[Rfam]
RNA sequence: GGUAGUAGGUCUACCAAUAUCGCUGCUUCAAGCAGGGGUAUUAAACCGCCUCUCGGUGCUUUGAAAGUAAUGGAUAGGUAUUGAACGGCAAGAGGUAAAGGCUGUUAAAACAGUCAGGU
Numbered sequence: 001g002g003u004a005g006u007a008g009g010u011c012u013a014c015c016a017a018u019a020u021c022g023c024u025g026c027u028u029c030a031a032g033c034a035g036g037g038g039u040a041u042u043a044a045a046c047c048g049c050c051u052c053u054c055g056g057u058g059c060u061u062u063g064a065a066a067g068u069a070a071u072g073g074a075u076a077g078g079u080a081u082u083g084a085a086c087g088g089c090a091a092g093a094g095g096u097a098a099a100g101g102c103u104g105u106u107a108a109a110a111c112a113g114u115c116a117g118g119u
Stems, first nucleotide, its partner, number of pairs: 001015005016042006023035004047118001049095005054088001055082002058079003062074001065071001100115006
About this RNA:
The family of this 119-nucleotide RNA sequence from Darwinula stevensoni is "Group II catalytic intron D1-D4-2". NCBI's taxonomy places the organism under Eukaryota, Panarthropoda, Arthropoda, Darwinuloidea, Darwinula. Rfam's curators write: Group II introns are found in rRNA, tRNA and mRNA of organelles in fungi, plants and protists, and also in mRNA in bacteria. The pairing is the family consensus, mapped onto this sequence. Its family is annotated with Group II intron splicing in the Gene Ontology.